[Rfam]
RNA sequence: CGUCAAGAGUCUUUGGCACCGAUUUGGUGAGCGGAUUUCUUUUGCCUGAAGAAAGGUGAAGAAAAAUG
Numbered sequence: 001c002g003u004c005a006a007g008a009g010u011c012u013u014u015g016g017c018a019c020c021g022a023u024u025u026g027g028u029g030a031g032c033g034g035a036u037u038u039c040u041u042u043u044g045c046c047u048g049a050a051g052a053a054a055g056g057u058g059a060a061g062a063a064a065a066a067u068g
Base pairs, nucleotide, nucleotide: 010063012061013060014059017058018057019056020055023053024052025051029047031045032044033043034042035041
Overview
S-element: a 68-nucleotide sequence from Allorhizobium borbori. From the family's description: This family represents a group of S-elements from p42d and related plasmids. The source organism's lineage runs through Bacteria, Alphaproteobacteria, Hyphomicrobiales, Rhizobiaceae and Allorhizobium. It scores 78 bits against the family's covariance model.